[Rfam]
RNA: SAM riboswitch aptamer (S box leader)
Organism: Abyssicoccus albus
Nucleotides: 105
Stems, first nucleotide, its partner, number of pairs: 001105008013041001015040003021031003025076004042068004047064002049060003072097001077094005
Number, partner (000 for none) and nucleotide at each position: 001105c002104u003103c004102u005101u006100a007099u008098c009000c010000a011000g012000a013041g014000u015040g016039g017038u018000g019000g020000a021031g022030g023029g024000a025076u026075g027074u028073g029023c030022c031021c032000u033000u034000u035000g036000a037000a038017g039016c040015c041013c042068g043067g044066c045065a046000a047064c048063c049060g050059u051058c052000u053000u054000a055000a056000a057000u058051g059050a060049c061000a062000a063048g064047g065045u066044g067043c068042c069000a070000a071000u072097u073028c074027a075026c076025a077094a078093u079092a080091a081090g082000c083000u084000u085000a086000a087000u088000g089000a090081c091080u092079u093078a094077u095000g096000a097072a098008g099007a100006u101005g102004a103003g104002a105001g